[Rfam]
The record is a 90-nucleotide RNA sequence from Paenibacillus cellulosilyticus, which matches "c-di-GMP-I riboswitch aptamer" in Rfam. The organism belongs to Paenibacillus, within Bacteria. The family's consensus secondary structure is taken from published work.
RNA sequence: UCACGAUAAUGGCAAACCUGUCGAUAAGGCAGGGACGCAAAACUACAGGGCCUAAGGGUGAUCACUCACCUAUGGCAGCCAGUUACCGAA
Numbered sequence: 001u002c003a004c005g006a007u008a009a010u011g012g013c014a015a016a017c018c019u020g021u022c023g024a025u026a027a028g029g030c031a032g033g034g035a036c037g038c039a040a041a042a043c044u045a046c047a048g049g050g051c052c053u054a055a056g057g058g059u060g061a062u063c064a065c066u067c068a069c070c071u072a073u074g075g076c077a078g079c080c081a082g083u084u085a086c087c088g089a090a
Base pairs, nucleotide, nucleotide: 012038013037017033018032019031020030021029022028041084042083043082044081048080049079050076051075052074057070058069059068060067